[Rfam]
RNA sequence: UCCGCCGUGAGACGGAUUCUGAAAGAAGUCGGAUGCGGAGACUUAAAAGUGUCUCUGUGGGCAAAACCUCGCAUUGCUUGCAAUGCUUCUGACUGAACAGAAACUGUAUAUAAGGCAUACUUGAAACGGACGAGUUUCCUAUUCAAAACGAAGUCCGAUACUGCCCGAAGUUCAAGGUGUAAAUGCAGCAGAUAUAUGAGGUGAAGGUGAUUACG
Numbered sequence: 001u002c003c004g005c006c007g008u009g010a011g012a013c014g015g016a017u018u019c020u021g022a023a024a025g026a027a028g029u030c031g032g033a034u035g036c037g038g039a040g041a042c043u044u045a046a047a048a049g050u051g052u053c054u055c056u057g058u059g060g061g062c063a064a065a066a067c068c069u070c071g072c073a074u075u076g077c078u079u080g081c082a083a084u085g086c087u088u089c090u091g092a093c094u095g096a097a098c099a100g101a102a103a104c105u106g107u108a109u110a111u112a113a114g115g116c117a118u119a120c121u122u123g124a125a126a127c128g129g130a131c132g133a134g135u136u137u138c139c140u141a142u143u144c145a146a147a148a149c150g151a152a153g154u155c156c157g158a159u160a161c162u163g164c165c166c167g168a169a170g171u172u173c174a175a176g177g178u179g180u181a182a183a184u185g186c187a188g189c190a191g192a193u194a195u196a197u198g199a200g201g202u203g204a205a206g207g208u209g210a211u212u213a214c215g
Base pairs, nucleotide, nucleotide: 001016002015003014004013006011054215056213057212061208062207066202067201068200069199070198071197074191075190076189104188105187106186107185108184109183115180116179117178120176121175122174123173124172125171128156129155130154131153134149135148136147137146
Group II catalytic intron D1-D4-3: a 215-nucleotide sequence from Candidatus Colimorpha enterica. Its family is annotated with Group II intron splicing in the Gene Ontology. The source organism's lineage runs through Bacteria, Pseudomonadati, Bacteroidota, Bacteroidia and Candidatus Colimorpha. Rfam's curators write: Group II introns are found in rRNA, tRNA and mRNA of organelles in fungi, plants and protists, and also in mRNA in bacteria. The match comes from Rfam's covariance-model search (87 bits).